A member of the RNA family "mir-551 microRNA precursor family" from Eudromia elegans, 75 nucleotides long.
Rfam links the family to the GO terms RISC complex and miRNA-mediated post-transcriptional gene silencing.
A reference for the family is Murchison et al. (2008), "Conservation of small RNA pathways in platypus", Genome Res.

RNA sequence: AGGCUCCCGAAAUCAAGGGUGGGUGAGACCUCGUGAGCCAACUUUCAGGCGACCCAUACUUGGUUUCAGGGGCUG
Numbered sequence: 001a002g003g004c005u006c007c008c009g010a011a012a013u014c015a016a017g018g019g020u021g022g023g024u025g026a027g028a029c030c031u032c033g034u035g036a037g038c039c040a041a042c043u044u045u046c047a048g049g050c051g052a053c054c055c056a057u058a059c060u061u062g063g064u065u066u067c068a069g070g071g072g073c074u075g
Stems, first nucleotide, its partner, number of pairs: 002074006009067006016060002021055004029049003